[Rfam]
RNA sequence: UUCCAGGACAUACUAAUGAGGAUGUCAAAAAUGCAAUUGGAGUCCUCA
Dot-bracket structure: .[[[[[...........((((((.............]]]]])))))).
RNA: Pseudoknot of influenza A virus gene